Rfam assigns this 111-nucleotide sequence from Microcebus murinus to the family "Y RNA".
NCBI's taxonomy places the organism under Eukaryota, Chordata, Boreoeutheria, Cheirogaleidae, Microcebus.
Pairs were carried over by alignment from the consensus structure, which is taken from published work.
[Rfam]
RNA sequence: GGCUGGUCCGAAGGUAGUGAGUAUCUCACGUGAUUGUUCACAGUCAGUUACAGAUUGAACUCCUUGUUACUACUUUCCCCCCUCCUCACUACUGCACUUGACUAGUCUUAA
Numbered sequence: 001g002g003c004u005g006g007u008c009c010g011a012a013g014g015u016a017g018u019g020a021g022u023a024u025c026u027c028a029c030g031u032g033a034u035u036g037u038u039c040a041c042a043g044u045c046a047g048u049u050a051c052a053g054a055u056u057g058a059a060c061u062c063c064u065u066g067u068u069a070c071u072a073c074u075u076u077c078c079c080c081c082c083u084c085c086u087c088a089c090u091a092c093u094g095c096a097c098u099u100g101a102c103u104a105g106u107c108u109u110a111a
Stems, first nucleotide, its partner, number of pairs: 001107008010099002014095002016090006042074003